Background: This 55-nucleotide RNA sequence from Sphingomonas sp. AX6 belongs to the Rfam family "terC RNA". A search with the family's covariance model found it, with a score of 50 bits. NCBI's taxonomy places the organism under Bacteria, Pseudomonadati, Alphaproteobacteria, Sphingomonadales, Sphingomonas. The family's RNA type in Rfam is cis-regulatory element.
RNA sequence: CUUGCGGACCGGGCCCCUCUGGCAAUCUUCAUGGAUUGCGAUGUCGGACGUAUCG
Numbered sequence: 001c002u003u004g005c006g007g008a009c010c011g012g013g014c015c016c017c018u019c020u021g022g023c024a025a026u027c028u029u030c031a032u033g034g035a036u037u038g039c040g041a042u043g044u045c046g047g048a049c050g051u052a053u054c055g
Stems, first nucleotide, its partner, number of pairs: 006049001009047004022039007